[Rfam]
RNA sequence: GCUUGAAUGAUGAUUGAACAUUCUUUUGUCGGAUACCCCUUCACUCUUCAAUGAGUGAGAUACCCAUUCUGACAUGC
Numbered sequence: 001g002c003u004u005g006a007a008u009g010a011u012g013a014u015u016g017a018a019c020a021u022u023c024u025u026u027u028g029u030c031g032g033a034u035a036c037c038c039c040u041u042c043a044c045u046c047u048u049c050a051a052u053g054a055g056u057g058a059g060a061u062a063c064c065c066a067u068u069c070u071g072a073c074a075u076g077c
Stems, first nucleotide, its partner, number of pairs: 001077002004074002
About this RNA: This 77-nucleotide RNA from Scophthalmus maximus belongs to the Rfam family "Small nucleolar RNA SNORD101". The family is grouped with related families in Rfam's "SNORD101 clan". The family's RNA type in Rfam is C/D-box small nucleolar RNA. The literature on the family includes a 2003 paper in Nucleic Acids Res by Vitali et al., "Identification of 13 novel human modification guide RNAs". The family has 26 seed sequences and 658 matches in Rfam 15.1. Gene Ontology terms of the family: RNA processing and nucleolus.